Source information:
The family of this 306-nucleotide RNA sequence is "Plant signal recognition particle RNA". For this family Rfam cites "Towards the structure of the mammalian signal recognition particle" (Wild et al., Curr Opin Struct Biol, 2002).

[Rfam]
RNA sequence: GUCGAACUCAGUAACGUGGGCUUAUCACCCAAGUUUGGGGGCAUUAUUGUGAUUGGACACGUCGUUUGACUGUCUAGCUGAACCGAUGGAUGCAAUUAACCGAAUUGCCCGUUCCAAGUGGUGAGUUGGGCCAUGUUACUCGGGCGAAGGCUUGAGCCACGUGCUAGUAAAGUGGAGGGCAACUCAUCAGGUUGGUUUGACAGAGCAGCGAAAACUUCCAACUCUCUAUAAUGGAAGGAUAACGGGUCGGUGCUUCUUCGGCCCACUUAAGAUAAAUGGGCUAGCCACUAUUGGACAAUCAUUUUU
Number, nucleotide and partner (000 for none) at each position: 001g042002u041003c040004g023005a022006a000007c020008u019009c018010a017011g000012u000013a000014a000015c000016g000017u010018g009019g008020g007021c000022u005023u004024a000025u000026c000027a000028c039029c038030c037031a036032a000033g000034u000035u000036u031037g030038g029039g028040g003041g002042c001043a000044u000045u000046a305047u000048u000049g302050u301051g300052a299053u298054u297055g296056g000057a000058c293059a292060c000061g288062u287063c000064g285065u284066u283067u000068g281069a000070c279071u278072g277073u276074c000075u274076a273077g000078c271079u270080g264081a000082a000083c261084c260085g259086a258087u000088g256089g000090a255091u000092g253093c000094a000095a251096u000097u000098a000099a000100c250101c249102g248103a247104a000105u245106u244107g243108c000109c238110c237111g000112u236113u235114c234115c233116a232117a000118g229119u228120g227121g226122u000123g224124a223125g222126u221127u000128g000129g165130g164131c000132c163133a162134u161135g160136u159137u000138a000139c156140u155141c154142g153143g152144g151145c150146g000147a000148a000149g000150g145151c144152u143153u142154g141155a140156g139157c000158c000159a136160c135161g134162u133163g132164c130165u129166a000167g000168u000169a000170a000171a000172g000173u220174g219175g218176a217177g216178g215179g000180c000181a000182a000183c000184u211185c210186a000187u208188c000189a000190g000191g000192u203193u202194g201195g000196u000197u000198u000199g000200a000201c194202a193203g192204a000205g000206c000207a000208g187209c000210g185211a184212a000213a000214a000215c178216u177217u176218c175219c174220a173221a126222c125223u124224c123225u000226c121227u120228a119229u118230a000231a000232u116233g115234g114235a113236a112237g110238g109239a000240u000241a000242a000243c107244g106245g105246g000247u103248c102249g101250g100251u095252g000253c092254u000255u090256c088257u000258u086259c085260g084261g083262c000263c000264c080265a000266c000267u000268u000269a000270a079271g078272a000273u076274a075275a000276a073277u072278g071279g070280g000281c068282u000283a066284g065285c064286c000287a062288c061289u000290a000291u000292u059293g058294g000295a000296c055297a054298a053299u052300c051301a050302u049303u000304u000305u046306u000